A member of the RNA family "Small nucleolar RNA J33" from Papaver nudicaule, 81 nucleotides long. Gene Ontology terms of the family: nucleolus and RNA processing. NCBI's taxonomy places the organism under Eukaryota, Euphyllophyta, Spermatophyta, Ranunculales, Papaver.
RNA sequence: CUGUGAGAGGAAUGAUGUAUUACUAUAAGGCUCUUACAAUGCUGGCGUACUUAGAUUCUGCAUCUGAAAUGGACAUUAGAG
Numbered sequence: 001c002u003g004u005g006a007g008a009g010g011a012a013u014g015a016u017g018u019a020u021u022a023c024u025a026u027a028a029g030g031c032u033c034u035u036a037c038a039a040u041g042c043u044g045g046c047g048u049a050c051u052u053a054g055a056u057u058c059u060g061c062a063u064c065u066g067a068a069a070u071g072g073a074c075a076u077u078a079g080a081g
Stems, first nucleotide, its partner, number of pairs: 001081002004078003